This 191-nucleotide RNA sequence belongs to the Rfam family "Lysine riboswitch aptamer".

[Rfam]
RNA sequence: CGAUGAGGUAGAGGUCGCGGUUUUUAUUAGUAAAGUGGACGAGAUGUGAGAGACAUUCAUGACUCCACUUAAAAGGAAAAAUCGCCGAAGUGUGCUUUUACUCUUCAAAAAGCAUGCUGGGUCUGUCUUCAAAUAGGAACAGAACUGUCACGAUUAUUUCUACCAGCUAAUCGUGUUGAGCUAUCUUUCGG
Numbered sequence: 001c002g003a004u005g006a007g008g009u010a011g012a013g014g015u016c017g018c019g020g021u022u023u024u025u026a027u028u029a030g031u032a033a034a035g036u037g038g039a040c041g042a043g044a045u046g047u048g049a050g051a052g053a054c055a056u057u058c059a060u061g062a063c064u065c066c067a068c069u070u071a072a073a074a075g076g077a078a079a080a081a082u083c084g085c086c087g088a089a090g091u092g093u094g095c096u097u098u099u100a101c102u103c104u105u106c107a108a109a110a111a112g113c114a115u116g117c118u119g120g121g122u123c124u125g126u127c128u129u130c131a132a133a134u135a136g137g138a139a140c141a142g143a144a145c146u147g148u149c150a151c152g153a154u155u156a157u158u159u160c161u162a163c164c165a166g167c168u169a170a171u172c173g174u175g176u177u178g179a180g181c182u183a184u185c186u187u188u189c190g191g
Stems, first nucleotide, its partner, number of pairs: 006186006017085009033070007089118011119146002122143005128137002149175008
Dot-bracket structure: .....((((((.....(((((((((.......(((((((........................)))))))......)))))))))...(((((((((((........)))))))))))((.(((((.((......)).))))).))..((((((((...........)))))))).....)))))).....
Rfam links the family to the GO term lysine biosynthetic process.